[Rfam]
RNA sequence: UAUGAGCCUAAAGGCGUCGCAGGGGUGGCUGCUGUGCCACGUUUCCGUCAGUAGGUGGCAGAGAGGAAAGAAGCUAAGUCUAUGCUCAGUGUUCUGACCUGUGCACCUCUGAAUGAUCAGUAGCCUAAAACU
Number, nucleotide and partner (000 for none) at each position: 001u000002a000003u060004g059005a000006g000007c055008c054009u053010a052011a000012a000013g049014g048015c047016g000017u000018c000019g046020c000021a044022g043023g000024g000025g040026u039027g038028g037029c036030u000031g000032c000033u000034g000035u000036g029037c028038c027039a026040c025041g000042u000043u022044u021045c000046c019047g015048u014049c013050a000051g000052u010053a009054g008055g007056u000057g000058g000059c004060a003061g000062a000063g000064a000065g000066g000067a000068a000069a000070g000071a126072a000073g124074c123075u122076a121077a000078g000079u000080c000081u000082a000083u115084g114085c000086u112087c111088a110089g109090u000091g106092u105093u000094c103095u000096g000097a000098c000099c000100u000101g000102u000103g094104c000105a092106c091107c000108u000109c089110u088111g087112a086113a000114u084115g083116a000117u000118c000119a000120g000121u076122a075123g074124c073125c000126u071127a000128a000129a000130a000131c000132u000